RNA sequence: GCAAUCUCGGAGCGUAUUAUUACGACUUUGAUUCUCUGGGGGAUACGCGUAAUGACCAUUCAAGCUGAUUGUGACAUUACGUAGGGUAGGUAUCGGCAAAGCCACUUGUCGAUAGACGGGAUACUAGUGCUGUAAGAAGCAGCAUGUUAAUGGGAAACCCAACA
Numbered sequence: 001g002c003a004a005u006c007u008c009g010g011a012g013c014g015u016a017u018u019a020u021u022a023c024g025a026c027u028u029u030g031a032u033u034c035u036c037u038g039g040g041g042g043a044u045a046c047g048c049g050u051a052a053u054g055a056c057c058a059u060u061c062a063a064g065c066u067g068a069u070u071g072u073g074a075c076a077u078u079a080c081g082u083a084g085g086g087u088a089g090g091u092a093u094c095g096g097c098a099a100a101g102c103c104a105c106u107u108g109u110c111g112a113u114a115g116a117c118g119g120g121a122u123a124c125u126a127g128u129g130c131u132g133u134a135a136g137a138a139g140c141a142g143c144a145u146g147u148u149a150a151u152g153g154g155a156a157a158c159c160c161a162a163c164a
Stems, first nucleotide, its partner, number of pairs: 006040006047082008057071002091114009128144006
About this RNA: The family of this 164-nucleotide RNA from Vibrio campbellii is "DABA-DC-AT RNA".